[Rfam]
RNA sequence: AGACGUUAGAGGCCGUAGCAGAAGUGCUUAUGGCACAACCAUGUCAGAUUCCAACGAAUCUGCAAAAUCUGCU
Numbered sequence: 001a002g003a004c005g006u007u008a009g010a011g012g013c014c015g016u017a018g019c020a021g022a023a024g025u026g027c028u029u030a031u032g033g034c035a036c037a038a039c040c041a042u043g044u045c046a047g048a049u050u051c052c053a054a055c056g057a058a059u060c061u062g063c064a065a066a067a068u069c070u071g072c073u
Base pairs, nucleotide, nucleotide: 011040012039017073018072019071020070021069022068024036025035026034045062046061047060048059049058050057051056

A member of the RNA family "Mammalian CPEB3 ribozyme" from Crocodylus porosus, 73 nucleotides long. Rfam's curators write: The mammalian CPEB3 ribozyme is a self cleaving RNA located in the second intron of the CPEB3 gene which belongs to a family of genes regulating messenger RNA polyadenylation. The match comes from Rfam's covariance-model search (40 bits). The family's consensus secondary structure is taken from published work. Its family is annotated with RNA nuclease activity in the Gene Ontology.